[Rfam]
RNA: Bacterial large subunit ribosomal RNA, nucleotides 2844 to 3104
Organism: Knoellia aerolata
Nucleotides: 261
Base pairs, nucleotide, nucleotide: 001159002158003157004156005155006154007153008152011145012144013143014142017045018044019043020042021041022040023039047102048101049100050099051098055096056095057094062089063088064087065086066085067082068081069080070079071078072077106140107139108138113133114132115131116130117129162173163172164171178257179256180255181254182199183198184197185196186195204250205249206248207246208245209244210243211242214238220233221232222231223230224229
Number, partner (000 for none) and nucleotide at each position: 001159g002158g003157a004156a005155a006154u007153u008152u009000g010000a011145g012144a013143a014142g015000g016000g017045c018044u019043g020042u021041c022040c023039c024000u025000a026000g027000u028000a029000c030000g031000a032000g033000a034000g035000g036000a037000c038000c039023g040022g041021g042020a043019u044018g045017g046000a047102c048101g049100a050099a051098c052000c053000u054000c055096u056095g057094g058000u059000g060000u061000g062089u063088c064087a065086g066085u067082u068081g069080u070079u071078c072077u073000g074000c075000c076000a077072a078071g079070a080069g081068c082067a083000c084000c085066g086065c087064u088063g089062a090000u091000u092000a093000g094057c095056u096055a097000c098051g099050u100049u101048c102047g103000g104000a105000a106140g107139u108138g109000a110000u111000a112000a113133c114132c115131g116130c117129u118000g119000a120000a121000a122000g123000c124000a125000u126000c127000u128000a129117a130116g131115c132114g133113g134000g135000a136000a137000g138108c139107a140106c141000g142014c143013u144012u145011c146000a147000a148000g149000a150000u151000g152008a153007g154006a155005u156004u157003u158002c159001c160000a161000u162173g163172g164171g165000g166000u167000u168000u169000a170000c171164c172163c173162c174000g175000a176000g177000a178257g179256g180255c181254u182199c183198c184197c185196a186195g187000c188000u189000a190000g191000a192000c193000u194000a195186c196185u197184g198183g199182g200000u201000u202000g203000a204250u205249a206248g207246g208245c209244c210243a211242g212000a213000c214238g215000u216000g217000g218000a219000a220233g221232u222231g223230c224229a225000g226000c227000a228000a229224u230223g231222c232221a233220u234000g235000u236000a237000g238214c239000u240000g241000a242211c243210u244209g245208g246207u247000a248206c249205u250204a251000a252000u253000a254181a255180g256179c257178c258000g259000a260000u261000a